[Rfam]
RNA sequence: AAACUAAUAUACCCAUAUUCUGGCUAGGUGAUCAUCAGAAUAUGGGUAUAUUAGUUUGG
Numbered sequence: 001a002a003a004c005u006a007a008u009a010u011a012c013c014c015a016u017a018u019u020c021u022g023g024c025u026a027g028g029u030g031a032u033c034a035u036c037a038g039a040a041u042a043u044g045g046g047u048a049u050a051u052u053a054g055u056u057u058g059g
Stems, first nucleotide, its partner, number of pairs: 001057022
The family of this 59-nucleotide sequence from Homo sapiens is "mir-5583 microRNA precursor family".
NCBI's taxonomy places the organism under Eukaryota, Opisthokonta, Teleostomi, Primates, Homo.